[Rfam]
RNA sequence: GGGCUCAUGAUGAUUUGGAUCCGAAAGGAUCUUAGCUGAUUUCUGUGAGGCGAUUCAAUCGCCGUUGAUAUGUUGUUUGUUCUUACACACAAUAAAGCCC
Numbered sequence: 001g002g003g004c005u006c007a008u009g010a011u012g013a014u015u016u017g018g019a020u021c022c023g024a025a026a027g028g029a030u031c032u033u034a035g036c037u038g039a040u041u042u043c044u045g046u047g048a049g050g051c052g053a054u055u056c057a058a059u060c061g062c063c064g065u066u067g068a069u070a071u072g073u074u075g076u077u078u079g080u081u082c083u084u085a086c087a088c089a090c091a092a093u094a095a096a097g098c099c100c
Stems, first nucleotide, its partner, number of pairs: 001100005
Dot-bracket structure: (((((..........................................................................................)))))
RNA: Small nucleolar RNA R11/Z151